[Rfam]
RNA sequence: UAAAUACAAAACAACGGAAGCCCUACCUCUCUUCCAUCCUUGCGGCUCCGAUGACCGCGCCAGUGAGAAUUGCGAAACCAAACACUUG
Numbered sequence: 001u002a003a004a005u006a007c008a009a010a011a012c013a014a015c016g017g018a019a020g021c022c023c024u025a026c027c028u029c030u031c032u033u034c035c036a037u038c039c040u041u042g043c044g045g046c047u048c049c050g051a052u053g054a055c056c057g058c059g060c061c062a063g064u065g066a067g068a069a070u071u072g073c074g075a076a077a078c079c080a081a082a083c084a085c086u087u088g
Stems, first nucleotide, its partner, number of pairs: 035067001039063002041059005047053001